[Rfam]
The record is a 78-nucleotide RNA sequence from Ornithorhynchus anatinus, which matches "Small nucleolar RNA SNORD79" in Rfam. From the family's description: snoRNA U79 or Z22 is found in intron 7 of the gas5 gene in humans and is also present in mice. Taxonomically the source falls in Ornithorhynchus (Eukaryota, Chordata, Craniata, Amniota). Gene Ontology terms of the family: nucleolus and RNA processing. The literature on the family includes a 2002 paper in Mol Cell Biol by Galardi et al., "Purified box C/D snoRNPs are able to reproduce site-specific 2'-O-methylation of target RNA in vitro". By type it is a C/D-box small nucleolar RNA. It is one of the family's seed sequences.
RNA sequence: UGCUGUUCAUGAUGAUUUGUUAAAAUCAAUGGGAAUCUCUCUGAAGAGAAUGAAGCCAGUUUUUAUACUGAAACAGUA
Numbered sequence: 001u002g003c004u005g006u007u008c009a010u011g012a013u014g015a016u017u018u019g020u021u022a023a024a025a026u027c028a029a030u031g032g033g034a035a036u037c038u039c040u041c042u043g044a045a046g047a048g049a050a051u052g053a054a055g056c057c058a059g060u061u062u063u064u065a066u067a068c069u070g071a072a073a074c075a076g077u078a
Base pairs, nucleotide, nucleotide: 001078002077003076004075005074006073007072